Rfam assigns this 72-nucleotide RNA from Geothrix sp. to the family "tRNA". Transfer RNA (tRNA) molecules are approximately 80 nucleotides in length. The base pairs follow the family's consensus structure, which is taken from published work. The family's RNA type in Rfam is transfer RNA.

RNA sequence: UGGCGCGUAGCUCAGCGGUAGAGCACCACCUUGACACGGUGGGGGUCGGCGGUUCGAGACCGCCCGCGCCAA
Numbered sequence: 001u002g003g004c005g006c007g008u009a010g011c012u013c014a015g016c017g018g019u020a021g022a023g024c025a026c027c028a029c030c031u032u033g034a035c036a037c038g039g040u041g042g043g044g045g046u047c048g049g050c051g052g053u054u055c056g057a058g059a060c061c062g063c064c065c066g067c068g069c070c071a072a
Base pairs, nucleotide, nucleotide: 001071002070003069004068005067006066007065010024011023012022013021026042027041028040029039030038048064049063050062051061052060